[Rfam]
Mammalian CPEB3 ribozyme: an 80-nucleotide RNA sequence from Crocodylus porosus. It scores 46 bits against the family's covariance model. Pairs were carried over by alignment from the consensus structure, which is taken from published work.

RNA sequence: AGAGGUCCCAAGUUCAGGGUCAUAGCAGAAGCGUGCACAACACGGCCCUGUCAGAGUCCAGUGAAUCUGCAAAUUCUUUU
Numbered sequence: 001a002g003a004g005g006u007c008c009c010a011a012g013u014u015c016a017g018g019g020u021c022a023u024a025g026c027a028g029a030a031g032c033g034u035g036c037a038c039a040a041c042a043c044g045g046c047c048c049u050g051u052c053a054g055a056g057u058c059c060a061g062u063g064a065a066u067c068u069g070c071a072a073a074u075u076c077u078u079u080u
Stems, first nucleotide, its partner, number of pairs: 017048005024080002027077004031043001033041001052069004057064002